[Rfam]
RNA: Small nucleolar RNA SNORA27
RNA sequence: UUACCAUCUUUCACUUUGCCAGUUACACUUAUGUCUUCAUUGGCCAUUCAAGUGGGACAAAGGAUUUAAAACACAGGCAGACUUGGUGUUUGUCUUGUAAACUGUCAGGGGAAACAUUG
Numbered sequence: 001u002u003a004c005c006a007u008c009u010u011u012c013a014c015u016u017u018g019c020c021a022g023u024u025a026c027a028c029u030u031a032u033g034u035c036u037u038c039a040u041u042g043g044c045c046a047u048u049c050a051a052g053u054g055g056g057a058c059a060a061a062g063g064a065u066u067u068a069a070a071a072c073a074c075a076g077g078c079a080g081a082c083u084u085g086g087u088g089u090u091u092g093u094c095u096u097g098u099a100a101a102c103u104g105u106c107a108g109g110g111g112a113a114a115c116a117u118u119g
Stems, first nucleotide, its partner, number of pairs: 032059005040051004065108002074097001075095008